[Rfam]
RNA sequence: UGUAGGCAGUUGUGGGGUAUAGCAGAAACAUUCACAUUACAGCCCGUCAGGUAAUUCUGGUAAUACCUGUGAAUUCUGCU
Numbered sequence: 001u002g003u004a005g006g007c008a009g010u011u012g013u014g015g016g017g018u019a020u021a022g023c024a025g026a027a028a029c030a031u032u033c034a035c036a037u038u039a040c041a042g043c044c045c046g047u048c049a050g051g052u053a054a055u056u057c058u059g060g061u062a063a064u065a066c067c068u069g070u071g072a073a074u075u076c077u078g079c080u
Stems, first nucleotide, its partner, number of pairs: 013046004018041001021080007030038001048069006
RNA: Mammalian CPEB3 ribozyme